This 101-nucleotide RNA from Oceanobacillus picturae belongs to the Rfam family "Purine riboswitch aptamer". The match comes from Rfam's covariance-model search (77 bits).

RNA sequence: AGAAUGAAUUUAAUAGAGAUGCGUAUAAUUUCGGGAAUAGGGCCCAAAGUUUCUACCGGAUCACCGUAAAUGAUCUGACUACGCAGAAAAGCAAUCGUUUG
Numbered sequence: 001a002g003a004a005u006g007a008a009u010u011u012a013a014u015a016g017a018g019a020u021g022c023g024u025a026u027a028a029u030u031u032c033g034g035g036a037a038u039a040g041g042g043c044c045c046a047a048a049g050u051u052u053c054u055a056c057c058g059g060a061u062c063a064c065c066g067u068a069a070a071u072g073a074u075c076u077g078a079c080u081a082c083g084c085a086g087a088a089a090a091g092c093a094a095u096c097g098u099u100u101g
Base pairs, nucleotide, nucleotide: 020085021084022083023082024081025080029048030047031046033045034044035043057077058076059075060074061073062072063071
The family's consensus secondary structure is taken from published work.